Repression of heat shock gene expression (ROSE) element: a 91-nucleotide sequence from Methylobacterium nodulans. It scores 67 bits against the family's covariance model. For this family Rfam cites "Replicon-specific regulation of small heat shock genes in Agrobacterium tumefaciens" (Balsiger et al., J Bacteriol, 2004). By type it is an RNA thermoregulator. Rfam 15.1 lists 381 matches to the family in 262 species. NCBI's taxonomy places the organism under Bacteria, Pseudomonadati, Alphaproteobacteria, Hyphomicrobiales, Methylobacterium nodulans.
RNA sequence: GCCAAGGCUAGAGUGCUUGGCGCCAUGGGCGCUGGCAAGUGUCCAGCGCUCUCAUACCCAUGUUGCUCAAUGGAGGAUAUGGCUAUGAGAA
Number, nucleotide and partner (000 for none) at each position: 001g021002c020003c019004a018005a017006g016007g000008c015009u000010a000011g000012a000013g000014u000015g008016c006017u005018u004019g003020g002021c001022g000023c000024c000025a000026u000027g000028g050029g049030c048031g047032c046033u045034g044035g043036c000037a000038a000039g000040u000041g000042u000043c035044c034045a033046g032047c031048g030049c029050u028051c089052u088053c087054a086055u085056a084057c000058c082059c081060a080061u079062g078063u077064u076065g000066c075067u074068c073069a000070a000071u000072g000073g068074a067075g066076g064077a063078u062079a061080u060081g059082g058083c000084u056085a055086u054087g053088a052089g051090a000091a000
The base pairs follow the family's consensus structure, which is taken from published work. Gene Ontology terms of the family: regulation of translation and response to temperature stimulus. About the family: This family represents a 5' UTR cis-regulatory element found in heat shock mRNAs and is known as the ROSE (repression of heat shock gene expression) element.